[Rfam]
RNA: Manganese Mn2+ riboswitch aptamer (yybP-ykoY)
Organism: Brenneria goodwinii
RNA sequence: UGCGCCGUCAUUGGGGAGUAGCCGGUUUCUGAAACCUAAUUCAGAAAUGCUCGUAUCAACAUACUCGUUUUAUAUGCAGGAUAAUUUAUAAAACGUGGUGCGGGCGGCCGAUGGGCAGGCGAGACCAUAGACACGAUGAUCAUCAUGAGGUUGGGGAUGAUCGACGUGGAUAUGGAGAAACACCCAGCCGA
Numbered sequence: 001u002g003c004g005c006c007g008u009c010a011u012u013g014g015g016g017a018g019u020a021g022c023c024g025g026u027u028u029c030u031g032a033a034a035c036c037u038a039a040u041u042c043a044g045a046a047a048u049g050c051u052c053g054u055a056u057c058a059a060c061a062u063a064c065u066c067g068u069u070u071u072a073u074a075u076g077c078a079g080g081a082u083a084a085u086u087u088a089u090a091a092a093a094c095g096u097g098g099u100g101c102g103g104g105c106g107g108c109c110g111a112u113g114g115g116c117a118g119g120c121g122a123g124a125c126c127a128u129a130g131a132c133a134c135g136a137u138g139a140u141c142a143u144c145a146u147g148a149g150g151u152u153g154g155g156g157a158u159g160a161u162c163g164a165c166g167u168g169g170a171u172a173u174g175g176a177g178a179a180a181c182a183c184c185c186a187g188c189c190g191a
Base pairs, nucleotide, nucleotide: 026047027046028045029044030043031042032041049105050104051103052102053101054100055099056098057097058096066095067094068093069092070091071090072089073088074087112191